[Rfam]
RNA sequence: CAGGCAUAAUGAGGACGAAUUUAUGAAACAUUAUCUGAUUAUUAUGAUGAUCAAUAACCUCCUACUCAUUCUGA
Numbered sequence: 001c002a003g004g005c006a007u008a009a010u011g012a013g014g015a016c017g018a019a020u021u022u023a024u025g026a027a028a029c030a031u032u033a034u035c036u037g038a039u040u041a042u043u044a045u046g047a048u049g050a051u052c053a054a055u056a057a058c059c060u061c062c063u064a065c066u067c068a069u070u071c072u073g074a
Base pairs, nucleotide, nucleotide: 006069007068009066031050032049035046
Small nucleolar RNA Z105: a 74-nucleotide RNA from Hibiscus trionum. The family has 11 seed sequences and 621 matches in Rfam 15.1. NCBI's taxonomy places the organism under Eukaryota, Tracheophyta, Malvales, Malvaceae, Hibiscus.